[Rfam]
RNA sequence: AGAACGGUCCGGGCCCCUCUGGCGAUCCCUUCACGGUCGCGAUGUCGGACCUGCGCU
Numbered sequence: 001a002g003a004a005c006g007g008u009c010c011g012g013g014c015c016c017c018u019c020u021g022g023c024g025a026u027c028c029c030u031u032c033a034c035g036g037u038c039g040c041g042a043u044g045u046c047g048g049a050c051c052u053g054c055g056c057u
Stems, first nucleotide, its partner, number of pairs: 006051007022040006
About this RNA:
The family of this 57-nucleotide sequence from Methylopila sp. Yamaguchi is "terC RNA". NCBI's taxonomy places the organism under Bacteria, Alphaproteobacteria, Hyphomicrobiales, Methylopilaceae, Methylopila. The match comes from Rfam's covariance-model search (54 bits). By type it is a cis-regulatory element.